[Rfam]
RNA sequence: AAAUGUUCUCCUUGUAAGUCGCUUUGGAUAAAAGCAUCUGCCAAAUGCCCUAAA
Numbered sequence: 001a002a003a004u005g006u007u008c009u010c011c012u013u014g015u016a017a018g019u020c021g022c023u024u025u026g027g028a029u030a031a032a033a034g035c036a037u038c039u040g041c042c043a044a045a046u047g048c049c050c051u052a053a054a
Stems, first nucleotide, its partner, number of pairs: 013043001014041003021035005

The record is a 54-nucleotide RNA sequence from Muraenolepis orangiensis, which matches "UnaL2 LINE 3' element" in Rfam. The match comes from Rfam's covariance-model search (57 bits). The base pairs follow the family's consensus structure, which is taken from published work. Rfam classes the family as a cis-regulatory element. Rfam's curators write: The eel long interspersed element (LINE) UnaL2 and its partner short interspersed element (SINE) share a conserved 3' tail containing a stem-loop that is critical for their retrotransposition.